The family of this 86-nucleotide RNA from Brachionus plicatilis is "Selenocysteine transfer RNA".
[Rfam]
RNA sequence: GCCCAAAUGAACUUCGGUGGUCCGGUGUUCAGGCUUCAAACCUGUAGCUGUCUAACGACAGAGUGGUUCGAUUCCACCUUUUGGGC
Dot-bracket structure: (((((((.(..(.((((....)))).)(.((((.......)))).).(((((....))))).((((.......))))).)))))))